[Rfam]
A member of the RNA family "SAM riboswitch aptamer (S box leader)" from Planococcus rifietoensis, 105 nucleotides long.
A reference for the family is Grundy and Henkin (1998), "The S box regulon: a new global transcription termination control system for methionine and cysteine biosynthesis genes in gram-positive bacteria", Mol Microbiol.
A search with the family's covariance model found it, with a score of 83 bits.
Gene Ontology term of the family: regulation of gene expression.
NCBI's taxonomy places the organism under Bacteria, Bacillati, Bacillota, Bacilli, Planococcus.
RNA sequence: CUCUUAUACAGAGAGGUGGAGGGAAGUGCCCGAUGAAGCCCGGCAACCGUCAUGAAAAUGAAAUGGUGCCAAGUCACUCAAAGUGAAAACUUUGAAAGAUGAGAG
Numbered sequence: 001c002u003c004u005u006a007u008a009c010a011g012a013g014a015g016g017u018g019g020a021g022g023g024a025a026g027u028g029c030c031c032g033a034u035g036a037a038g039c040c041c042g043g044c045a046a047c048c049g050u051c052a053u054g055a056a057a058a059u060g061a062a063a064u065g066g067u068g069c070c071a072a073g074u075c076a077c078u079c080a081a082a083g084u085g086a087a088a089a090c091u092u093u094g095a096a097a098g099a100u101g102a103g104a105g
Stems, first nucleotide, its partner, number of pairs: 001105007013041001015040003021031003025078004042070004047066002050061003074097001079094006